[Rfam]
RNA: Small nucleolar RNA SNORD79
RNA sequence: UGCUGUUGAUGAUGGUUUUUUAAAUUAAAAAAUGGGAAUCUCUCUGAAAGAGAGUGAAGAUGAAUAUUUAACUGAAACAGUA
Numbered sequence: 001u002g003c004u005g006u007u008g009a010u011g012a013u014g015g016u017u018u019u020u021u022a023a024a025u026u027a028a029a030a031a032a033u034g035g036g037a038a039u040c041u042c043u044c045u046g047a048a049a050g051a052g053a054g055u056g057a058a059g060a061u062g063a064a065u066a067u068u069u070a071a072c073u074g075a076a077a078c079a080g081u082a
Stems, first nucleotide, its partner, number of pairs: 001082007